[Rfam]
RNA sequence: AUGACCAUGUGUGCACGGUUUUUAUCUGUGAAUGAUAGCAGCAUCUGUCUGUGUUCUGCAUUCAGAUCUUGCUGUCCACACAGACAUCAUGCAGCCAAAGAGUAAGUUGGUAUCAUAGUACUGGUCUAGUGUUGUCUCUUUGGACCUAUUCCCACUGGCCAGCCUCCAAGUUCCCCCACACAG
Numbered sequence: 001a002u003g004a005c006c007a008u009g010u011g012u013g014c015a016c017g018g019u020u021u022u023u024a025u026c027u028g029u030g031a032a033u034g035a036u037a038g039c040a041g042c043a044u045c046u047g048u049c050u051g052u053g054u055u056c057u058g059c060a061u062u063c064a065g066a067u068c069u070u071g072c073u074g075u076c077c078a079c080a081c082a083g084a085c086a087u088c089a090u091g092c093a094g095c096c097a098a099a100g101a102g103u104a105a106g107u108u109g110g111u112a113u114c115a116u117a118g119u120a121c122u123g124g125u126c127u128a129g130u131g132u133u134g135u136c137u138c139u140u141u142g143g144a145c146c147u148a149u150u151c152c153c154a155c156u157g158g159c160c161a162g163c164c165u166c167c168a169a170g171u172u173c174c175c176c177c178a179c180a181c182a183g
Stems, first nucleotide, its partner, number of pairs: 013092003029082002033078002036074006043067005050060003109175002112172001121162006128156004134146001137144002